[Rfam]
RNA sequence: ACGUCAUCUCUGUGCUUCUUUGUCUACAAUUUUGGAAAAAGUGGUGACGCCAUUGCUCUUUCCCAAAUGUAGACAAAGCAAUACCGUGAUGACGU
Numbered sequence: 001a002c003g004u005c006a007u008c009u010c011u012g013u014g015c016u017u018c019u020u021u022g023u024c025u026a027c028a029a030u031u032u033u034g035g036a037a038a039a040a041g042u043g044g045u046g047a048c049g050c051c052a053u054u055g056c057u058c059u060u061u062c063c064c065a066a067a068u069g070u071a072g073a074c075a076a077a078g079c080a081a082u083a084c085c086g087u088g089a090u091g092a093c094g095u
Stems, first nucleotide, its partner, number of pairs: 001095008010086001012084003016080001018078010029068004034063005040057007
Annotation:
This 95-nucleotide sequence from Arabidopsis lyrata belongs to the Rfam family "MIR158 microRNA precursor family". The family has 5 seed sequences and 27 matches in Rfam 15.1. The sequence is in the family's curated seed alignment. The organism belongs to Arabidopsis, within Eukaryota. The family's consensus secondary structure was predicted with RNAalifold.